A member of the RNA family "mir-2807 microRNA precursor family" from Bombyx mori, 85 nucleotides long.
RNA sequence: UCAACUCUAAUUUGUAUGGAGUUGGAUCAGUGUCCCUAGUUGCAAACCUAGAGAGGCUGAUCCAACUCCGUACAAAUUUGAGUUA
Numbered sequence: 001u002c003a004a005c006u007c008u009a010a011u012u013u014g015u016a017u018g019g020a021g022u023u024g025g026a027u028c029a030g031u032g033u034c035c036c037u038a039g040u041u042g043c044a045a046a047c048c049u050a051g052a053g054a055g056g057c058u059g060a061u062c063c064a065a066c067u068c069c070g071u072a073c074a075a076a077u078u079u080g081a082g083u084u085a
Base pairs, nucleotide, nucleotide: 009078010077011076012075013074014073015072016071018069020067021066022065023064024063025062026061027060028059029058034053036051039047040046